[Rfam]
RNA: TPP riboswitch aptamer (THI element)
Organism: Corynebacterium diphtheriae
RNA sequence: UUUAUAAAUCACGGGUGCUGGACGGCAUACGUUUGCCACAAAGCUGAGACAGGGCGAGAAGACGUGCACGUCCCUGAACCGUUGAACCUGAUCCGGGUAAUACCGGCGAUAGGAAGAAUAAUGAACCGAUCG
Numbered sequence: 001u002u003u004a005u006a007a008a009u010c011a012c013g014g015g016u017g018c019u020g021g022a023c024g025g026c027a028u029a030c031g032u033u034u035g036c037c038a039c040a041a042a043g044c045u046g047a048g049a050c051a052g053g054g055c056g057a058g059a060a061g062a063c064g065u066g067c068a069c070g071u072c073c074c075u076g077a078a079c080c081g082u083u084g085a086a087c088c089u090g091a092u093c094c095g096g097g098u099a100a101u102a103c104c105g106g107c108g109a110u111a112g113g114a115a116g117a118a119u120a121a122u123g124a125a126c127c128g129a130u131c132g
Stems, first nucleotide, its partner, number of pairs: 007119001009117002011082004016076001017044003051075004087113004093106004